[Rfam]
RNA sequence: AGUGAAGUAUAAUCUAGCCCAUUAUACAUACAGCCGCCAUGGCAUGAUAAGAUGUAGCCGGAGUACAGGAUGACCACCCCGUAAGCUUAUCAAUAAGUCCCACAG
Numbered sequence: 001a002g003u004g005a006a007g008u009a010u011a012a013u014c015u016a017g018c019c020c021a022u023u024a025u026a027c028a029u030a031c032a033g034c035c036g037c038c039a040u041g042g043c044a045u046g047a048u049a050a051g052a053u054g055u056a057g058c059c060g061g062a063g064u065a066c067a068g069g070a071u072g073a074c075c076a077c078c079c080c081g082u083a084a085g086c087u088u089a090u091c092a093a094u095a096a097g098u099c100c101c102a103c104a105g
Stems, first nucleotide, its partner, number of pairs: 002077001007027007040102001041100002043097001045092007059081003064076001068075002
Rfam assigns this 105-nucleotide RNA to the family "cow-rumen-2 RNA". The sequence is in the family's curated seed alignment.